[Rfam]
RNA sequence: GUUCUUUUUGCUUUUGAUUGUUGCUCAGAAAGCCGUGUCUUUAACAGGCUUUCGGGCAAUAAUCAUUUCCAAACAGAAC
Numbered sequence: 001g002u003u004c005u006u007u008u009u010g011c012u013u014u015u016g017a018u019u020g021u022u023g024c025u026c027a028g029a030a031a032g033c034c035g036u037g038u039c040u041u042u043a044a045c046a047g048g049c050u051u052u053c054g055g056g057c058a059a060u061a062a063u064c065a066u067u068u069c070c071a072a073a074c075a076g077a078a079c
Stems, first nucleotide, its partner, number of pairs: 001079005007073001015065004020060007028053007

mir-315 microRNA precursor family: a 79-nucleotide sequence from Tenebrio molitor. NCBI's taxonomy places the organism under Eukaryota, Hexapoda, Endopterygota, Polyphaga, Tenebrio. A reference for the family is Ruby et al. (2007), "Evolution, biogenesis, expression, and target predictions of a substantially expanded set of Drosophila microRNAs", Genome Res.